About this RNA:
The family of this 78-nucleotide RNA from Gouania willdenowi is "mir-458 microRNA precursor family". For this family Rfam cites "A microRNA catalog of the developing chicken embryo identified by a deep sequencing approach" (Glazov et al., Genome Res, 2008). It scores 59 bits against the family's covariance model. Taxonomically the source falls in Gouania (Eukaryota, Deuterostomia, Actinopterygii, Percomorphaceae). Rfam 15.1 lists 1,011 matches to the family in 491 species.
RNA sequence: CUGCAGAUUUCAGCGCCAUUUUCAGAGCUAUCAGUGAGAACAAUGUCCUAGCUCUCUGAAUGGUCCUAAUGUCUGCAG
Dot-bracket structure: .(((..((...((.(((((((..(((((((..................)))))))..))))))).))...))..))).